This 137-nucleotide RNA sequence from Bisgaardia hudsonensis belongs to the Rfam family "Molybdenum/Tungsten riboswitch aptamer (Moco RNA motif)". Taxonomically the source falls in Bisgaardia (Bacteria, Pseudomonadati, Pseudomonadota, Pasteurellales). The family's consensus secondary structure is taken from published work. A search with the family's covariance model found it, with a score of 74 bits.
RNA sequence: UUUUACCCUUGACUCCGAGCUUGCGAUCCUAAGUCGAAAGAUAUGGUAACAAGCCAGCAAUAAGUUCGCUUAUUCCAUGGAUAGUCGAGAAAUUGGUUAUCCACUCAUAUUUAGAAAGGUGUCAAACUUUAACUAUU
Numbered sequence: 001u002u003u004u005a006c007c008c009u010u011g012a013c014u015c016c017g018a019g020c021u022u023g024c025g026a027u028c029c030u031a032a033g034u035c036g037a038a039a040g041a042u043a044u045g046g047u048a049a050c051a052a053g054c055c056a057g058c059a060a061u062a063a064g065u066u067c068g069c070u071u072a073u074u075c076c077a078u079g080g081a082u083a084g085u086c087g088a089g090a091a092a093u094u095g096g097u098u099a100u101c102c103a104c105u106c107a108u109a110u111u112u113a114g115a116a117a118g119g120u121g122u123c124a125a126a127c128u129u130u131a132a133c134u135a136u137u
Stems, first nucleotide, its partner, number of pairs: 003131001011123003015119002019054005028046002033042003056070003060066001078103011104114002